[Rfam]
RNA sequence: UUUCCUCAGCCUUACUCCAGAGGCUCCCCAACCCAUGGAGUGCCUUGGCAUUGCCUGAGGAGACAGUGAAAAUGUUCUGACUGGAUGUCCAGAAGGGUAUUUCAUUCCCUUUGAGGCUUACAGUUGGAGCAAACAUU
Numbered sequence: 001u002u003u004c005c006u007c008a009g010c011c012u013u014a015c016u017c018c019a020g021a022g023g024c025u026c027c028c029c030a031a032c033c034c035a036u037g038g039a040g041u042g043c044c045u046u047g048g049c050a051u052u053g054c055c056u057g058a059g060g061a062g063a064c065a066g067u068g069a070a071a072a073u074g075u076u077c078u079g080a081c082u083g084g085a086u087g088u089c090c091a092g093a094a095g096g097g098u099a100u101u102u103c104a105u106u107c108c109c110u111u112u113g114a115g116g117c118u119u120a121c122a123g124u125u126g127g128a129g130c131a132a133a134c135a136u137u
Stems, first nucleotide, its partner, number of pairs: 003061007011053001017048004022043001023041005073131003077127002088115001090113003094110004
RNA: Small nucleolar RNA SNORA49
Organism: Thamnophis sirtalis